[Rfam]
RNA: Small nucleolar RNA snoR8a
Organism: Cocos nucifera
RNA sequence: CCUGGUGUCAUGAUUUUAAGAAAAAAUUUCCUCCUGACUGCUCUAUCCAUGGCAUGACAGACUCCUUUCAGCUGCUGGAUGGUUUAUGAGCAUCA
Numbered sequence: 001c002c003u004g005g006u007g008u009c010a011u012g013a014u015u016u017u018a019a020g021a022a023a024a025a026a027u028u029u030c031c032u033c034c035u036g037a038c039u040g041c042u043c044u045a046u047c048c049a050u051g052g053c054a055u056g057a058c059a060g061a062c063u064c065c066u067u068u069c070a071g072c073u074g075c076u077g078g079a080u081g082g083u084u085u086a087u088g089a090g091c092a093u094c095a
Stems, first nucleotide, its partner, number of pairs: 003095002006092002